This 117-nucleotide RNA from Pseudomonas matsuisoli belongs to the Rfam family "Pseudomon-1/ErsA RNA".
From the family's description: Functions to regulate the AlgC enzyme. Based on this information, the new name ErsA for the RNA was adopted. Negatively regulates major porin oprD expression responsible for uptake of carbapenem antibiotics, by base pairing with oprD 5'UTR (leading to increased bacterial resistance to meropenem).Positively regulates amrZ mRNA and contributes to biofilm formation and motility.
On this family, see Zhang et al., Mol Microbiol 2017: "Probing the sRNA regulatory landscape of P. aeruginosa: post-transcriptional control of determinants of pathogenicity and antibiotic susceptibility".
It scores 110 bits against the family's covariance model.

RNA sequence: AUGCUCCUUUUGCUGUGUUUAGUGUUGGCAGAUAUCUGGACUCGUUCUAGCGGUCCGGACUUGAACCCCGAGCCUCUCCCCUCCCCAUACGAAGCUCGGGGUUUUUUUUGUCCAAAG
Numbered sequence: 001a002u003g004c005u006c007c008u009u010u011u012g013c014u015g016u017g018u019u020u021a022g023u024g025u026u027g028g029c030a031g032a033u034a035u036c037u038g039g040a041c042u043c044g045u046u047c048u049a050g051c052g053g054u055c056c057g058g059a060c061u062u063g064a065a066c067c068c069c070g071a072g073c074c075u076c077u078c079c080c081c082u083c084c085c086c087a088u089a090c091g092a093a094g095c096u097c098g099g100g101g102u103u104u105u106u107u108u109u110g111u112c113c114a115a116a117g
Stems, first nucleotide, its partner, number of pairs: 035059008063105003066101008075092002